[Rfam]
RNA: Exoribonuclease-resistant RNA (xrRNA) plant-infecting virus (class 3)
Organism: Polerovirus TRIYSV
RNA sequence: CAUCAGCCGGACAUACGUAAGUUGCAAGUGCCGGGGAUUCAGUCUUACAC
Numbered sequence: 001c002a003u004c005a006g007c008c009g010g011a012c013a014u015a016c017g018u019a020a021g022u023u024g025c026a027a028g029u030g031c032c033g034g035g036g037a038u039u040c041a042g043u044c045u046u047a048c049a050c
Stems, first nucleotide, its partner, number of pairs: 003036001007034002010032001011029002017048005